Mammalian CPEB3 ribozyme: an 80-nucleotide RNA sequence from Alligator mississippiensis. It scores 46 bits against the family's covariance model. The organism belongs to Alligator, within Eukaryota. The base pairs follow the family's consensus structure, which is taken from published work.
[Rfam]
RNA sequence: AGAGGCUAAGAGUUCUAGGCCAUAGCAGAAGUGCUCAUGGUGUGGCCAUGUCAGAUUCUAACAGAUCUGUCAAUUCUGCU
Number, nucleotide and partner (000 for none) at each position: 001a000002g000003a000004g000005g000006c000007u000008a000009a000010g000011a000012g000013u048014u000015c000016u000017a000018g047019g046020c045021c044022a000023u000024a080025g079026c078027a077028g076029a075030a074031g043032u042033g041034c000035u000036c000037a000038u000039g000040g000041u033042g032043u031044g021045g020046c019047c018048a013049u000050g000051u000052c069053a068054g067055a066056u065057u064058c000059u000060a000061a000062c000063a000064g057065a056066u055067c054068u053069g052070u000071c000072a000073a000074u030075u029076c028077u027078g026079c025080u024